The record is an 88-nucleotide RNA sequence from Streptococcus ictaluri, which matches "Glycine riboswitch aptamer" in Rfam.
[Rfam]
Nucleotides: 088
Stems, first nucleotide, its partner, number of pairs: 006083001008081006020029003031068003034064002038062003044055002
Number, partner (000 for none) and nucleotide at each position: 001000g002000g003000a004000c005000g006083g007000a008081c009080u010079u011078c012077u013076g014000g015000a016000g017000a018000g019000a020029c021028c022027u023000u024000a025000u026000u027022a028021g029020g030000c031068g032067c033066c034064g035063a036000a037000g038062g039061g040060g041000c042000a043000a044055g045054g046000c047000a048000a049000a050000a051000c052000u053000g054045c055044u056000c057000a058000a059000u060040c061039u062038c063035u064034c065000a066033g067032g068031c069000a070000a071000a072000a073000g074000g075000a076013c077012a078011g079010a080009a081008g082000a083006u084000u085000a086000a087000a088000a
It scores 68 bits against the family's covariance model.